A member of the RNA family "Mason-Pfizer monkey virus packaging signal" from Pipistrellus kuhlii, 272 nucleotides long. Lineage of the source: Eukaryota > Metazoa > Laurasiatheria > Vespertilionidae > Pipistrellus. Rfam links the family to the GO term viral genome packaging. The match comes from Rfam's covariance-model search (135 bits). From the family's description: This family represents a group of sequences that are related to the Mason-Pfizer monkey virus (MPMV) packaging signal.
RNA sequence: UGGCGCCCAACGUGGGCCAGAGCACGAGGGACUCCGUGAAGAAAGCUAUUCAGAGAAGCCGGCAAAAGAGAAACUAAGAGGAGGACGAGAUUAAACGGGAACCUGCUGUUUCUUCUGAACCUCCGUAAGUUGAACAGUGAUUAUGGGACAAGAAAUAAGUCAGCAUGAAAUGUUCCUAGAAGGACUCAAAAAGGCUUUAAAGGCACGAGGGGUAAAGGUUUCUGUAAAACAAUUAUUAAGAUAUUUUGAUUAUAUUAAGGAUGUUUGUCCAU
Numbered sequence: 001u002g003g004c005g006c007c008c009a010a011c012g013u014g015g016g017c018c019a020g021a022g023c024a025c026g027a028g029g030g031a032c033u034c035c036g037u038g039a040a041g042a043a044a045g046c047u048a049u050u051c052a053g054a055g056a057a058g059c060c061g062g063c064a065a066a067a068g069a070g071a072a073a074c075u076a077a078g079a080g081g082a083g084g085a086c087g088a089g090a091u092u093a094a095a096c097g098g099g100a101a102c103c104u105g106c107u108g109u110u111u112c113u114u115c116u117g118a119a120c121c122u123c124c125g126u127a128a129g130u131u132g133a134a135c136a137g138u139g140a141u142u143a144u145g146g147g148a149c150a151a152g153a154a155a156u157a158a159g160u161c162a163g164c165a166u167g168a169a170a171u172g173u174u175c176c177u178a179g180a181a182g183g184a185c186u187c188a189a190a191a192a193g194g195c196u197u198u199a200a201a202g203g204c205a206c207g208a209g210g211g212g213u214a215a216a217g218g219u220u221u222c223u224g225u226a227a228a229a230c231a232a233u234u235a236u237u238a239a240g241a242u243a244u245u246u247u248g249a250u251u252a253u254a255u256u257a258a259g260g261a262u263g264u265u266u267g268u269c270c271a272u
Stems, first nucleotide, its partner, number of pairs: 006030003012025003035045001037042001080124005089116001090114001094110005130151003135147001138145002156199003159195003206248005212242002216234002219231001221229001257272001259270004